[Rfam]
RNA sequence: AUUGUUCACUCUCCCUCAAGGGCUUCUCGCUUUAACAUCCAAGAACAAGACUAGAGGCCCUUGGGGAGGAGUAAAUAA
Numbered sequence: 001a002u003u004g005u006u007c008a009c010u011c012u013c014c015c016u017c018a019a020g021g022g023c024u025u026c027u028c029g030c031u032u033u034a035a036c037a038u039c040c041a042a043g044a045a046c047a048a049g050a051c052u053a054g055a056g057g058c059c060c061u062u063g064g065g066g067a068g069g070a071g072u073a074a075a076u077a078a
Base pairs, nucleotide, nucleotide: 006074008072009071010070011069012068014066015065017063018062019061020060021059022058023057024056025055026054
RNA: MIR473 microRNA precursor family